This 193-nucleotide RNA from Catagonus wagneri belongs to the Rfam family "Beta-globin co-transcriptional cleavage ribozyme". Rfam describes the family as follows. Transcription termination of RNA polymerase II transcripts is proposed to occur by a two stage process. The first stage involves pre-termination cleavage (PTC) of the nascent transcript downstream of the poly(A) site. This process is also referred to as co-transcriptional cleavage (CoTC). The CoTC process in the human beta-globin gene has been shown to involve an RNA self-cleaving activity located in the 3' flanking region of the beta-globin gene. This Rfam model represents the catalytic core of the beta-globin CoTC ribozyme. The CoTC core is highly conserved in the 3' flanking regions of other primate beta-globin genes. Functionally, this CoTC ribozyme resembles the 3' processive, self-cleaving ribozymes described for the protein-encoding genes from the myxomycetes Didymium iridis and Physarum polycephalum. It scores 69 bits against the family's covariance model. Taxonomically the source falls in Catagonus (Eukaryota, Metazoa, Gnathostomata, Mammalia). The literature on the family includes a 2001 paper in Cell by Dye and Proudfoot, "Multiple transcript cleavage precedes polymerase release in termination by RNA polymerase II".
[Rfam]
RNA sequence: GCAUAGUGUUACCGGCAGCAAUGCAGGACGGUUUAAUUUUCUCAUUCAGUAGCCACUUAUCUAGCUGCUUGAUUCUGGAAAUAAUAUAUGAAUUUCAAGUAGUCCUUGUCCCCUCCUGCAUCCCACCCCUGAAUCUAGUUAUGAAGAUUCUGCAGGCAGUGCAUCUCACAAGUGACCAUAAAUGUGUGUACAA
Numbered sequence: 001g002c003a004u005a006g007u008g009u010u011a012c013c014g015g016c017a018g019c020a021a022u023g024c025a026g027g028a029c030g031g032u033u034u035a036a037u038u039u040u041c042u043c044a045u046u047c048a049g050u051a052g053c054c055a056c057u058u059a060u061c062u063a064g065c066u067g068c069u070u071g072a073u074u075c076u077g078g079a080a081a082u083a084a085u086a087u088a089u090g091a092a093u094u095u096c097a098a099g100u101a102g103u104c105c106u107u108g109u110c111c112c113c114u115c116c117u118g119c120a121u122c123c124c125a126c127c128c129c130u131g132a133a134u135c136u137a138g139u140u141a142u143g144a145a146g147a148u149u150c151u152g153c154a155g156g157c158a159g160u161g162c163a164u165c166u167c168a169c170a171a172g173u174g175a176c177c178a179u180a181a182a183u184g185u186g187u188g189u190a191c192a193a
Stems, first nucleotide, its partner, number of pairs: 022190004033182002036179002042175005050063003066163003071123001074120001078117001090115002096108004129152001131150006